[Rfam]
RNA sequence: UUUCGUUCACCCUCUCUGAGGGCGCAGUUCGAGUCAUACCAUGGAACGGGGGAUGGC
Numbered sequence: 001u002u003u004c005g006u007u008c009a010c011c012c013u014c015u016c017u018g019a020g021g022g023c024g025c026a027g028u029u030c031g032a033g034u035c036a037u038a039c040c041a042u043g044g045a046a047c048g049g050g051g052g053a054u055g056g057c
Base pairs, nucleotide, nucleotide: 004048005047006046007045008044010022011021012020013019014018033057034056035055036054037053039051040050

Rfam assigns this 57-nucleotide RNA to the family "Glutamine-II riboswitch aptamer". Gene Ontology term of the family: glutamine binding. A reference for the family is Huang et al. (2019), "Structure and ligand binding of the glutamine-II riboswitch", Nucleic Acids Res. The family's consensus secondary structure is taken from published work.